[Rfam]
RNA sequence: AUAAUGAGACUCGCGCAUUGGACGCCCACAAAGCAUCGUGCGCCGCACCCAUCAGCAUGGGCCGGGGUGAAAUUCCCGUGG
Numbered sequence: 001a002u003a004a005u006g007a008g009a010c011u012c013g014c015g016c017a018u019u020g021g022a023c024g025c026c027c028a029c030a031a032a033g034c035a036u037c038g039u040g041c042g043c044c045g046c047a048c049c050c051a052u053c054a055g056c057a058u059g060g061g062c063c064g065g066g067g068u069g070a071a072a073u074u075c076c077c078g079u080g081g
Stems, first nucleotide, its partner, number of pairs: 012078001013043006044064002048060002065077003
The family of this 81-nucleotide RNA from Anaerofilum sp. An201 is "pemK RNA". A search with the family's covariance model found it, with a score of 41 bits. By type it is a cis-regulatory element. Lineage of the source: Bacteria > Bacillota > Eubacteriales > Oscillospiraceae > Anaerofilum.